[Rfam]
c-di-AMP riboswitch aptamer (ydaO/yuaA leader): a 159-nucleotide RNA from Streptomyces sp. MA5143a. The source organism's lineage runs through Bacteria, Bacillati, Kitasatosporales, Streptomycetaceae and Streptomyces. From the family's description: This family represents a conserved RNA structure found upstream of the ydaO and yuaA genes in Bacillus subtilis and related genes in other bacteria.
RNA sequence: GCCGCGUACCGACCCGAUCCACGGCAGGAGCGGGGGACCCACAGGUAGUACCGCCUGUUCCGGUCUCCGGAACGGCUAGGGGUAAAGCCGGGCACCAGCCCGGCCGGACAUCUCCAGUUCGCACCCGACAGCUCACCUCGCAGGCGCCGGAGAGGAAUU
Numbered sequence: 001g002c003c004g005c006g007u008a009c010c011g012a013c014c015c016g017a018u019c020c021a022c023g024g025c026a027g028g029a030g031c032g033g034g035g036g037a038c039c040c041a042c043a044g045g046u047a048g049u050a051c052c053g054c055c056u057g058u059u060c061c062g063g064u065c066u067c068c069g070g071a072a073c074g075g076c077u078a079g080g081g082g083u084a085a086a087g088c089c090g091g092g093c094a095c096c097a098g099c100c101c102g103g104c105c106g107g108a109c110a111u112c113u114c115c116a117g118u119u120c121g122c123a124c125c126c127g128a129c130a131g132c133u134c135a136c137c138u139c140g141c142a143g144g145c146g147c148c149g150g151a152g153a154g155g156a157a158u159u
Stems, first nucleotide, its partner, number of pairs: 001145003007029001009027001030141006040079001080126003088103004106120004